[Rfam]
RNA sequence: UGAAGGAGUAAUACCCAAUUUCUUGUUCUAUCAAGAGGGUGGGUAUUGUUCCUUCAU
Numbered sequence: 001u002g003a004a005g006g007a008g009u010a011a012u013a014c015c016c017a018a019u020u021u022c023u024u025g026u027u028c029u030a031u032c033a034a035g036a037g038g039g040u041g042g043g044u045a046u047u048g049u050u051c052c053u054u055c056a057u
Stems, first nucleotide, its partner, number of pairs: 002055012017040001020037006
Plastid-psbA-4 3UTR RNA: a 57-nucleotide RNA from Sinofranchetia chinensis. Rfam describes the family as follows. Plastid psbA-4 is a non-coding RNA (ncRNA) present in plastids. On this family, see Richter et al., Plant Commun 2023: "Retrograde signaling in plants: A critical review focusing on the GUN pathway and beyond". Rfam's curators put it in the seed alignment. Pairs were carried over by alignment from the consensus structure, which was predicted with LocARNA. Clan: Plastid-psbA 3UTR RNA clan. Lineage of the source: Eukaryota > Viridiplantae > Streptophytina > Sinofranchetieae > Sinofranchetia.